[Rfam]
RNA sequence: AAAAAAAAUGGGCGCAACGCCCAUCCUUCUGUACCGCGAUCACAUCCGGGCGGCGAAACAAUCACCAUGCCCAUCGACUUCGUGAUUUUAGCCAUUU
Numbered sequence: 001a002a003a004a005a006a007a008a009u010g011g012g013c014g015c016a017a018c019g020c021c022c023a024u025c026c027u028u029c030u031g032u033a034c035c036g037c038g039a040u041c042a043c044a045u046c047c048g049g050g051c052g053g054c055g056a057a058a059c060a061a062u063c064a065c066c067a068u069g070c071c072c073a074u075c076g077a078c079u080u081c082g083u084g085a086u087u088u089u090a091g092c093c094a095u096u097u
Base pairs, nucleotide, nucleotide: 008024009023010022011021012020013019014018038087039086040085041084042083043082048080049079050078051076052075053074
A member of the RNA family "Burkholderia sRNA Bp1_Cand612_SIPHT" from Burkholderia sp. Leaf177, 97 nucleotides long. On this family, see Khoo et al., BMC Genomics 2012: "Computational discovery and RT-PCR validation of novel Burkholderia conserved and Burkholderia pseudomallei unique sRNAs". The family's RNA type in Rfam is small RNA. A search with the family's covariance model found it, with a score of 73 bits.